[Rfam]
RNA sequence: UGUCUCCUCCACCCAAACAUCGGUGGAUUCCAGCCCAGGACUCGUUCCUGGGCUUUUUUUG
Numbered sequence: 001u002g003u004c005u006c007c008u009c010c011a012c013c014c015a016a017a018c019a020u021c022g023g024u025g026g027a028u029u030c031c032a033g034c035c036c037a038g039g040a041c042u043c044g045u046u047c048c049u050g051g052g053c054u055u056u057u058u059u060u061g
Stems, first nucleotide, its partner, number of pairs: 008027006032054008
RNA: Betaproteobacteria toxic small RNA